[Rfam]
RNA sequence: UCCACUGUGAGGUGGGAUCUGAAGGAAGCCAGCGGCAAGACUCUGGUCUGACGAAAAGAAACUACAUAUAAGGCACAUGUCUGUGGGUAAGUUUGCUACACAAAACAAAGCCCUAAACUAUCCGAAACAAGCGGUGUAAAUGUAGUAGAAAGAUGGAGUGAAAGGUUGUGCU
Dot-bracket structure: ((((((....))))))...........(.((....(...((((((.((((...........((((((.....(((..(((.(((((((..((((........))))...)))).............))).))).)))..))))))))))....))))))....)....)).)
RNA: Group II catalytic intron D1-D4-3